[Rfam]
RNA sequence: GGCAUCUCUUGGGUGCUGCACCCCAGAAUCGGGCUCCCUCCUCUCUGGUUCCAGGGUGCGUCACUGGAGAACUGCU
Numbered sequence: 001g002g003c004a005u006c007u008c009u010u011g012g013g014u015g016c017u018g019c020a021c022c023c024c025a026g027a028a029u030c031g032g033g034c035u036c037c038c039u040c041c042u043c044u045c046u047g048g049u050u051c052c053a054g055g056g057u058g059c060g061u062c063a064c065u066g067g068a069g070a071a072c073u074g075c076u
Base pairs, nucleotide, nucleotide: 002075003074007070008069009068010067012065013064014063015062017060019058020057021056022055023054026051027050028049029048030047031046032045033044
RNA: mir-9223 microRNA precursor family